[Rfam]
RNA sequence: GCAUGGCUGAAUUCUGCACUAGCUUUCUCAGUAGCUGAUGCAGUCAGACACCAUGCCAGAGCAAACUCCUUUUUCACUCUGCUUGGUGUGCUUUUCCCAUGGGAAUGGGCAUGCCCUUGGAAGGGGAAUACAU
Numbered sequence: 001g002c003a004u005g006g007c008u009g010a011a012u013u014c015u016g017c018a019c020u021a022g023c024u025u026u027c028u029c030a031g032u033a034g035c036u037g038a039u040g041c042a043g044u045c046a047g048a049c050a051c052c053a054u055g056c057c058a059g060a061g062c063a064a065a066c067u068c069c070u071u072u073u074u075c076a077c078u079c080u081g082c083u084u085g086g087u088g089u090g091c092u093u094u095u096c097c098c099a100u101g102g103g104a105a106u107g108g109g110c111a112u113g114c115c116c117u118u119g120g121a122a123g124g125g126g127a128a129u130a131c132a133u
Base pairs, nucleotide, nucleotide: 001056002055003054004053005052006051014043015042016041017040018039069126070125071124072123073122074121075120082119085115086114087113088112089111090110091109092108093107
Record summary: Shown here is a 133-nucleotide RNA from Sakesphorus luctuosus, a member of the family "Small nucleolar RNA SNORA15". Pairs were carried over by alignment from the consensus structure, which was predicted with RNAfold. From the family's description: ACA15 is a member of the H/ACA class of snoRNA that guide the sites of modification of uridines to pseudouridines. By type it is an H/ACA-box small nucleolar RNA. The family has 22 seed sequences and 974 matches in Rfam 15.1. The literature on the family includes a 2001 paper in EMBO J by Huttenhofer et al., "RNomics: an experimental approach that identifies 201 candidates for novel, small, non-messenger RNAs in mouse". The organism belongs to Sakesphorus, within Eukaryota.